[Rfam]
RNA: JUMPstart RNA
RNA sequence: CAGUAGGUUGGUGACUGUAAGCCAGGGGCGGUAGCAUG
Numbered sequence: 001c002a003g004u005a006g007g008u009u010g011g012u013g014a015c016u017g018u019a020a021g022c023c024a025g026g027g028g029c030g031g032u033a034g035c036a037u038g
Stems, first nucleotide, its partner, number of pairs: 008025005